[Rfam]
RNA: Small nucleolar RNA Z157/R69/R10
Organism: Papaver nudicaule
RNA sequence: GAGUUUGCAGUGAUGACACUAUAGUGGACUAGAGUUUCUGAUUAAGGCUCUUCACCUUAAUUUGACGACACACCCUUGGCUGUCUGAGCACUUCU
Number, nucleotide and partner (000 for none) at each position: 001g095002a000003g093004u000005u000006u090007g089008c088009a000010g000011u000012g000013a000014u000015g000016a000017c000018a000019c000020u000021a000022u000023a000024g000025u000026g000027g000028a000029c000030u000031a000032g000033a000034g000035u067036u000037u065038c064039u000040g000041a000042u060043u059044a058045a057046g056047g055048c000049u000050c000051u000052u000053c000054a000055c047056c046057u045058u044059a043060a042061u000062u000063u000064g038065a037066c000067g035068a000069c000070a000071c000072a000073c000074c000075c000076u000077u000078g000079g000080c000081u000082g000083u000084c000085u000086g000087a000088g008089c007090a006091c000092u000093u003094c000095u001